[Rfam]
Annotation
Shown here is a 103-nucleotide sequence from Rhizobacter sp. Root404, a member of the family "Glycine riboswitch aptamer". The family is grouped with related families in Rfam's "Glycine riboswitch clan".
RNA sequence: UGGCUGCCGUCAGGAGAGAGCAACCCCGGUUGCCGCCGAAGGCGCAGAGCGAAGUUGGAAACAUCGCGCUCGAACGCUCAGGCAAAAGGACUGACAAGCGCUU
Number, nucleotide and partner (000 for none) at each position: 001u000002g000003g000004c000005u000006g000007c000008c000009g095010u094011c093012a092013g091014g000015a000016g000017a000018g000019a000020g033021c032022a031023a030024c000025c000026c000027c000028g000029g000030u023031u022032g021033c020034c000035g083036c082037c081038g079039a078040a000041g000042g077043c076044g075045c000046a000047g000048a070049g069050c068051g067052a000053a000054g000055u000056u000057g000058g000059a000060a000061a000062c000063a000064u000065c000066g000067c051068g050069c049070u048071c000072g000073a000074a000075c044076g043077c042078u039079c038080a000081g037082g036083c035084a000085a000086a000087a000088g000089g000090a000091c013092u012093g011094a010095c009096a000097a000098g000099c000100g000101c000102u000103u000